[Rfam]
RNA sequence: CUUGUUAUAAUGAUGACUUGUCCAAAAACUUCUUGUAGGGAAGCUGGAUAAUGUCUGACAGCCGACAAG
Numbered sequence: 001c002u003u004g005u006u007a008u009a010a011u012g013a014u015g016a017c018u019u020g021u022c023c024a025a026a027a028a029c030u031u032c033u034u035g036u037a038g039g040g041a042a043g044c045u046g047g048a049u050a051a052u053g054u055c056u057g058a059c060a061g062c063c064g065a066c067a068a069g
Stems, first nucleotide, its partner, number of pairs: 001069005015055003018051007030042003
RNA: Selenocysteine insertion sequence 1
Organism: Larimichthys crocea